[Rfam]
RNA sequence: ACAUUUCCUACUGCAUGUUUCCUUAAAUCGGAUCCGAUUUAAGGAUAAAAACAUGCAGCGAUUCAAGGUGCUACAGCGUCCUUUGCGCGUCUGAUAGACGCGCGGCGCUGUAGCAGUCAAAAAGCACCGGAAUUCAAUCGAUUCCGGUGCUUUGUUGAUUGAGGU
Numbered sequence: 001a002c003a004u005u006u007c008c009u010a011c012u013g014c015a016u017g018u019u020u021c022c023u024u025a026a027a028u029c030g031g032a033u034c035c036g037a038u039u040u041a042a043g044g045a046u047a048a049a050a051a052c053a054u055g056c057a058g059c060g061a062u063u064c065a066a067g068g069u070g071c072u073a074c075a076g077c078g079u080c081c082u083u084u085g086c087g088c089g090u091c092u093g094a095u096a097g098a099c100g101c102g103c104g105g106c107g108c109u110g111u112a113g114c115a116g117u118c119a120a121a122a123a124g125c126a127c128c129g130g131a132a133u134u135c136a137a138u139c140g141a142u143u144c145c146g147g148u149g150c151u152u153u154g155u156u157g158a159u160u161g162a163g164g165u
Stems, first nucleotide, its partner, number of pairs: 013056008021044008030035001059161005065155001067118002069115012084102001086100002088097001123151012